[Rfam]
RNA: mir-236 microRNA precursor family
RNA sequence: GUCCAGCGUCUUACCUGUUCAAUAUUUAGACGGUCAGAGCUCUAAUACUGUCAGGUAAUGACGCUGGAA
Numbered sequence: 001g002u003c004c005a006g007c008g009u010c011u012u013a014c015c016u017g018u019u020c021a022a023u024a025u026u027u028a029g030a031c032g033g034u035c036a037g038a039g040c041u042c043u044a045a046u047a048c049u050g051u052c053a054g055g056u057a058a059u060g061a062c063g064c065u066g067g068a069a
Stems, first nucleotide, its partner, number of pairs: 002068009011058007020050002023047004028043003